[Rfam]
A member of the RNA family "mir-515 microRNA precursor family" from Chlorocebus sabaeus, 84 nucleotides long.
The family is grouped with related families in Rfam's "mir-290 clan".
The literature on the family includes a 2005 paper in Nat Genet by Bentwich et al., "Identification of hundreds of conserved and nonconserved human microRNAs".
NCBI's taxonomy places the organism under Eukaryota, Theria, Boreoeutheria, Simiiformes, Chlorocebus.
Pairs were carried over by alignment from the consensus structure, which was predicted with RNAalifold.
The match comes from Rfam's covariance-model search (70 bits).
RNA sequence: CCUCAGGCUGUGACCCUCUACAGGGAGGCACUUUCUGUGGUCAGAAAAAGAAAGUGCACCCUUUUAGAGGAUUAUUGUUUGAGA
Numbered sequence: 001c002c003u004c005a006g007g008c009u010g011u012g013a014c015c016c017u018c019u020a021c022a023g024g025g026a027g028g029c030a031c032u033u034u035c036u037g038u039g040g041u042c043a044g045a046a047a048a049a050g051a052a053a054g055u056g057c058a059c060c061c062u063u064u065u066a067g068a069g070g071a072u073u074a075u076u077g078u079u080u081g082a083g084a
Stems, first nucleotide, its partner, number of pairs: 002083004007078002010075004016069003020065001022063004028057008038049001